[Rfam]
RNA sequence: CCCGCGCCUAGCUCGACGGAGCGAAAACCGGAAACCUUUCACCGGCUGGCGUGGAUUUUAUGAGAGG
Numbered sequence: 001c002c003c004g005c006g007c008c009u010a011g012c013u014c015g016a017c018g019g020a021g022c023g024a025a026a027a028c029c030g031g032a033a034a035c036c037u038u039u040c041a042c043c044g045g046c047u048g049g050c051g052u053g054g055a056u057u058u059u060a061u062g063a064g065a066g067g
Base pairs, nucleotide, nucleotide: 002054003053004052005051006050007049008048011022012021013020014019028045029044030043031042035067036066037065038064039063040062
int-alpA RNA: a 67-nucleotide sequence. The sequence is in the family's curated seed alignment.